[Rfam]
RNA sequence: GAUGGCAGAUGAAGAAUUGAUUAAUUUAUGCUUAAAAAACGCAGAAUAAUAGUGUUUGACAAACAAUCUCCGCUUAUUAUCUGAUGCCAAC
Numbered sequence: 001g002a003u004g005g006c007a008g009a010u011g012a013a014g015a016a017u018u019g020a021u022u023a024a025u026u027u028a029u030g031c032u033u034a035a036a037a038a039a040c041g042c043a044g045a046a047u048a049a050u051a052g053u054g055u056u057u058g059a060c061a062a063a064c065a066a067u068c069u070c071c072g073c074u075u076a077u078u079a080u081c082u083g084a085u086g087c088c089a090a091c
Base pairs, nucleotide, nucleotide: 003089004088005087006086007085